[Rfam]
A member of the RNA family "Group II catalytic intron D1-D4-4" from Clostridium kluyveri, 138 nucleotides long. Rfam's curators write: Group II introns are found in rRNA, tRNA and mRNA of organelles in fungi, plants and protists, and also in mRNA in bacteria. Taxonomically the source falls in Clostridium kluyveri (Bacteria, Bacillota, Eubacteriales, Clostridiaceae). The sequence is in the family's curated seed alignment. Its family is annotated with Group II intron splicing in the Gene Ontology. On this family, see Bonen and Vogel, Trends Genet 2001: "The ins and outs of group II introns". The base pairs follow the family's consensus structure.
RNA sequence: UUACUGGUGAAAGUCCAGUCUAGGUAAUUACCAAGAAGCCUAGUAGCCAAUCACCAUGUGCAGUAGAAAUACUGGGCAUGAAGCGUGAAGGUAAUAUAUCCCGAAAGGGAGAUAGCGAAAAUGCAGGUUGUAAUAUAA
Numbered sequence: 001u002u003a004c005u006g007g008u009g010a011a012a013g014u015c016c017a018g019u020c021u022a023g024g025u026a027a028u029u030a031c032c033a034a035g036a037a038g039c040c041u042a043g044u045a046g047c048c049a050a051u052c053a054c055c056a057u058g059u060g061c062a063g064u065a066g067a068a069a070u071a072c073u074g075g076g077c078a079u080g081a082a083g084c085g086u087g088a089a090g091g092u093a094a095u096a097u098a099u100c101c102c103g104a105a106a107g108g109g110a111g112a113u114a115g116c117g118a119a120a121a122u123g124c125a126g127g128u129u130g131u132a133a134u135a136u137a138a
Stems, first nucleotide, its partner, number of pairs: 020043005051088004055080005064071002096113002099110003115131003